Background
The record is an 86-nucleotide sequence from Brassica rapa, which matches "Small nucleolar RNA Z159/U59" in Rfam. It is annotated as a C/D-box small nucleolar RNA. Taxonomically the source falls in Brassica (Eukaryota, Tracheophyta, Euphyllophyta, Brassicaceae). It scores 67 bits against the family's covariance model. Gene Ontology terms of the family: RNA processing and nucleolus.
[Rfam]
RNA sequence: UACUCUUAUGAUGUUAAAACUAUUAACUUUCGUUCUCCUGAGAUUUCAAUGUGCUGAAAAAUAAUGGAGACCUGAACUGAAGAGUU
Dot-bracket structure: ..((((..........................................................................))))..